[Rfam]
RNA: U5 spliceosomal RNA
RNA sequence: UAGCGCUGGUUUUUCUUAAGUCGUGCAUAAAUCUUUCGCCUUUUAUUAAAGAUUUUUGUGGUGAGGAACAUCAAUGAGUUUAAUGUGUUUUUGUGGGCUUUGCCCUGGCAAUGCU
Numbered sequence: 001u002a003g004c005g006c007u008g009g010u011u012u013u014u015c016u017u018a019a020g021u022c023g024u025g026c027a028u029a030a031a032u033c034u035u036u037c038g039c040c041u042u043u044u045a046u047u048a049a050a051g052a053u054u055u056u057u058g059u060g061g062u063g064a065g066g067a068a069c070a071u072c073a074a075u076g077a078g079u080u081u082a083a084u085g086u087g088u089u090u091u092u093g094u095g096g097g098c099u100u101u102g103c104c105c106u107g108g109c110a111a112u113g114c115u
Stems, first nucleotide, its partner, number of pairs: 003079002006076001009069007017061001019059001029055008095115001097114002100111003